[Rfam]
Notes: This 46-nucleotide sequence from Orthonyx spaldingii belongs to the Rfam family "Histone 3' UTR stem-loop". On this family, see Williams and Marzluff, Nucleic Acids Res 1995: "The sequence of the stem and flanking sequences at the 3' end of histone mRNA are critical determinants for the binding of the stem-loop binding protein".

RNA sequence: CCAACGGCUCUUUUAAGAGCCACCCAAAUUUUCACAAAAGGAGCUG
Numbered sequence: 001c002c003a004a005c006g007g008c009u010c011u012u013u014u015a016a017g018a019g020c021c022a023c024c025c026a027a028a029u030u031u032u033c034a035c036a037a038a039a040g041g042a043g044c045u046g
Base pairs, nucleotide, nucleotide: 006021007020008019009018010017011016

Rfam 15.1 lists 44,596 matches to the family in 976 species.